FMN riboswitch aptamer (RFN element): a 140-nucleotide RNA from Lachnospiraceae bacterium MD335.
RNA sequence: AAAAUUCUUCGGGGCAGGGUGAAAUUCCCUACCGGCGGUAAAGUCCGCGACCUGCUUUUUACAUAAAACGAUGUGUGAAAGGCGGCUGAUAUGGUGCGAUUCCAUAACCGACAGUAAAGUCUGGAUGAGAGAAGAACGGU
Numbered sequence: 001a002a003a004a005u006u007c008u009u010c011g012g013g014g015c016a017g018g019g020u021g022a023a024a025u026u027c028c029c030u031a032c033c034g035g036c037g038g039u040a041a042a043g044u045c046c047g048c049g050a051c052c053u054g055c056u057u058u059u060u061a062c063a064u065a066a067a068a069c070g071a072u073g074u075g076u077g078a079a080a081g082g083c084g085g086c087u088g089a090u091a092u093g094g095u096g097c098g099a100u101u102c103c104a105u106a107a108c109c110g111a112c113a114g115u116a117a118a119g120u121c122u123g124g125a126u127g128a129g130a131g132a133a134g135a136a137c138g139g140u
Stems, first nucleotide, its partner, number of pairs: 005136006017029003031120002033110002035048004043108002052085009090106005112123003